[Rfam]
RNA sequence: CAAUAUAUCUCUCUUCUGAGUAUCCUUACGGGCUUUUCGAAGAGAGCAAUCUUUUUUUUUUAACACCUUAAGUGGAGUGGUAUAGUGGCCCGUAUAGCCGGCAUUAACAUUCCUGAU
Numbered sequence: 001c002a003a004u005a006u007a008u009c010u011c012u013c014u015u016c017u018g019a020g021u022a023u024c025c026u027u028a029c030g031g032g033c034u035u036u037u038c039g040a041a042g043a044g045a046g047c048a049a050u051c052u053u054u055u056u057u058u059u060u061u062a063a064c065a066c067c068u069u070a071a072g073u074g075g076a077g078u079g080g081u082a083u084a085g086u087g088g089c090c091c092g093u094a095u096a097g098c099c100g101g102c103a104u105u106a107a108c109a110u111u112c113c114u115g116a117u
Stems, first nucleotide, its partner, number of pairs: 005050002009046005024101002029092004037116003
Shown here is a 117-nucleotide sequence from Moritella sp. Urea-trap-13, a member of the family "Alpha operon ribosome binding site". On this family, see Schlax et al., J Biol Chem 2001: "Translational repression of the Escherichia coli alpha operon mRNA: importance of an mRNA conformational switch and a ternary entrapment complex". The bacterial alpha operon ribosome binding site is surrounded by this complex pseudoknotted structure. Translation of the mRNA produces 4 ribosomal protein products, one of which (S4) acts as a translational repressor by binding to the nested pseudoknot region. The mechanism of repression is thought to involve a conformational switch in the pseudoknot region and ribosome entrapment. The organism belongs to Moritella, within Bacteria. The base pairs follow the family's consensus structure, which is taken from published work.